[Rfam]
RNA sequence: UGGGCGAUAUCCUAUUGAAUCGCACCUGUAAAAUGAGUACAUGAACACAAUUGAAUAAAUCUGCCUUGAUCAUAUUGACAGGGACGGAGGA
Numbered sequence: 001u002g003g004g005c006g007a008u009a010u011c012c013u014a015u016u017g018a019a020u021c022g023c024a025c026c027u028g029u030a031a032a033a034u035g036a037g038u039a040c041a042u043g044a045a046c047a048c049a050a051u052u053g054a055a056u057a058a059a060u061c062u063g064c065c066u067u068g069a070u071c072a073u074a075u076u077g078a079c080a081g082g083g084a085c086g087g088a089g090g091a
Base pairs, nucleotide, nucleotide: 002026003025004023005022006021007020008019010018011017061087062086063085064083065082066081067080068079070078071077072076
RNA: pan motif